[Rfam]
RNA sequence: ACCGCGUAUUUACUUACUAUAUAGUAGGCAAAAUAUAUGUAUUUCAGCUAUUAUAUAGUAGGUAAGUACACGGUUU
Dot-bracket structure: ((((.((((((((((.(((((((((((...(.(((....))).)...))))))))))).)))))))))).))))..
RNA: mir-7563 microRNA precursor family
Organism: Ameiurus melas